RNA sequence: AUUGGCAGAUGAUGAAAUAAUAUGAGUUUUAUUAUGCUUAACACUCUGAUUGUACUGUGGUGACUACAAACUCCGCUUAUUAUCUGAUGAUGCCUUA
Numbered sequence: 001a002u003u004g005g006c007a008g009a010u011g012a013u014g015a016a017a018u019a020a021u022a023u024g025a026g027u028u029u030u031a032u033u034a035u036g037c038u039u040a041a042c043a044c045u046c047u048g049a050u051u052g053u054a055c056u057g058u059g060g061u062g063a064c065u066a067c068a069a070a071c072u073c074c075g076c077u078u079a080u081u082a083u084c085u086g087a088u089g090a091u092g093c094c095u096u097a
Stems, first nucleotide, its partner, number of pairs: 004094004

A member of the RNA family "Small nucleolar RNA R16" from Helianthus annuus, 97 nucleotides long. The family's consensus secondary structure was predicted with PFOLD. NCBI's taxonomy places the organism under Eukaryota, Streptophyta, Embryophyta, Gunneridae, Helianthus. It is annotated as a C/D-box small nucleolar RNA. For this family Rfam cites "Purified box C/D snoRNPs are able to reproduce site-specific 2'-O-methylation of target RNA in vitro" (Galardi et al., Mol Cell Biol, 2002).